A member of the RNA family "Actino-pnp RNA" from Paraoerskovia marina, 67 nucleotides long. Lineage of the source: Bacteria > Bacillati > Actinomycetota > Cellulomonadaceae > Paraoerskovia. Rfam classes the family as a cis-regulatory element.
RNA sequence: UCUGGUCCUCGGUAGUGGCCCCCGGAACCCCGCGAGGGGAAGCCGUGAGCCUCGAUCGAAGACCGUC
Numbered sequence: 001u002c003u004g005g006u007c008c009u010c011g012g013u014a015g016u017g018g019c020c021c022c023c024g025g026a027a028c029c030c031c032g033c034g035a036g037g038g039g040a041a042g043c044c045g046u047g048a049g050c051c052u053c054g055a056u057c058g059a060a061g062a063c064c065g066u067c
Stems, first nucleotide, its partner, number of pairs: 003065005009059005017051003021047001023045003028039003